This 381-nucleotide RNA sequence from Aphanothece hegewaldii belongs to the Rfam family "Bacterial RNase P class A". Gene Ontology terms of the family: tRNA processing, dimeric ribonuclease P complex and ribonuclease P activity. The source organism's lineage runs through Bacteria, Bacillati, Aphanothecaceae, Aphanothece and Aphanothece hegewaldii. It scores 247 bits against the family's covariance model. Pairs were carried over by alignment from the consensus structure, which is taken from published work.
[Rfam]
RNA sequence: AGAGUUAGCCUUGAAGGUUGCGGGUUUAAAUCCCGAGGAAAGUCCGGACACCCGAAAGACCAAACUUGCUGGAUAACGCCCAGUGCGUGUGAACGCGAGGAAAGUGCCACAGAAAAAUACCGCCAAUGAGUUGAUCGCUCAUUUGGUAAGGGUGCAAAGGUGCGGUAAGAGCGCACCAGCAGUAUUGUGAAAUACUGGCUCGGUAAACCCCGGUUGGGUGCAAGGUGGAGGAACAAAGGUUGGUCUUUUUCCUGUUCCGCUUGUUUGGAACCGCUUGAGGCGUUUGGUAACAAACGACCCAGAUAGAUAACCUUCCUUUCAAGUAUAGUAGCUUGCUACAGCUUGGAAUGAACAGAACCCGGCUUAUGUCUGACUCUCUUC
Numbered sequence: 001a002g003a004g005u006u007a008g009c010c011u012u013g014a015a016g017g018u019u020g021c022g023g024g025u026u027u028a029a030a031u032c033c034c035g036a037g038g039a040a041a042g043u044c045c046g047g048a049c050a051c052c053c054g055a056a057a058g059a060c061c062a063a064a065c066u067u068g069c070u071g072g073a074u075a076a077c078g079c080c081c082a083g084u085g086c087g088u089g090u091g092a093a094c095g096c097g098a099g100g101a102a103a104g105u106g107c108c109a110c111a112g113a114a115a116a117a118u119a120c121c122g123c124c125a126a127u128g129a130g131u132u133g134a135u136c137g138c139u140c141a142u143u144u145g146g147u148a149a150g151g152g153u154g155c156a157a158a159g160g161u162g163c164g165g166u167a168a169g170a171g172c173g174c175a176c177c178a179g180c181a182g183u184a185u186u187g188u189g190a191a192a193u194a195c196u197g198g199c200u201c202g203g204u205a206a207a208c209c210c211c212g213g214u215u216g217g218g219u220g221c222a223a224g225g226u227g228g229a230g231g232a233a234c235a236a237a238g239g240u241u242g243g244u245c246u247u248u249u250u251c252c253u254g255u256u257c258c259g260c261u262u263g264u265u266u267g268g269a270a271c272c273g274c275u276u277g278a279g280g281c282g283u284u285u286g287g288u289a290a291c292a293a294a295c296g297a298c299c300c301a302g303a304u305a306g307a308u309a310a311c312c313u314u315c316c317u318u319u320c321a322a323g324u325a326u327a328g329u330a331g332c333u334u335g336c337u338a339c340a341g342c343u344u345g346g347a348a349u350g351a352a353c354a355g356a357a358c359c360c361g362g363c364u365u366a367u368g369u370c371u372g373a374c375u376c377u378c379u380u381c
Stems, first nucleotide, its partner, number of pairs: 001377008010368001013315007021035004026030001040365003044362004049220004058251002063215003067212002069083004084098001085096004099210002104208002106204003120151002122147005127141004159177006179199001180197007224272003231265002235261001242258002246254001279298001281296006